Shown here is an 87-nucleotide RNA sequence from Malus domestica, a member of the family "small nucleolar RNA snoR117". Its family is annotated with RNA processing and nucleolus in the Gene Ontology. The literature on the family includes a 2009 paper in Nucleic Acids Res by Chen and Wu, "Mining small RNA sequencing data: a new approach to identify small nucleolar RNAs in Arabidopsis". The family's consensus secondary structure was predicted with RNAalifold. The family's RNA type in Rfam is C/D-box small nucleolar RNA. It scores 52 bits against the family's covariance model.
RNA sequence: GGCCCGUGAUGUUUUGAUAUUGUAUUGUCCGUACCAUCCGAGAUAUUUUGGUAUCUUUGAUGAUUCAAUCACUAGCCUCUGAGGCCU
Numbered sequence: 001g002g003c004c005c006g007u008g009a010u011g012u013u014u015u016g017a018u019a020u021u022g023u024a025u026u027g028u029c030c031g032u033a034c035c036a037u038c039c040g041a042g043a044u045a046u047u048u049u050g051g052u053a054u055c056u057u058u059g060a061u062g063a064u065u066c067a068a069u070c071a072c073u074a075g076c077c078u079c080u081g082a083g084g085c086c087u
Base pairs, nucleotide, nucleotide: 001086002085003084004083